[Rfam]
RNA sequence: CAAAGCAAGCAGAAGCGCCCGCUUCUCACCUGAUUGACACAAGUUGACAGGUUAUCACUGAUUAAACAUAACCAGUAGAGGUGUGGGCGAUUUUAUGCGCUCGCACCUUUUUUGUGCA
Numbered sequence: 001c002a003a004a005g006c007a008a009g010c011a012g013a014a015g016c017g018c019c020c021g022c023u024u025c026u027c028a029c030c031u032g033a034u035u036g037a038c039a040c041a042a043g044u045u046g047a048c049a050g051g052u053u054a055u056c057a058c059u060g061a062u063u064a065a066a067c068a069u070a071a072c073c074a075g076u077a078g079a080g081g082u083g084u085g086g087g088c089g090a091u092u093u094u095a096u097g098c099g100c101u102c103g104c105a106c107c108u109u110u111u112u113u114g115u116g117c118a
Base pairs, nucleotide, nucleotide: 011026012025013024014023015022016021028052029051030050034047035046036045037044038043082105083104084103085102086101087100088099089098
RNA: Ribosomal protein L20 leader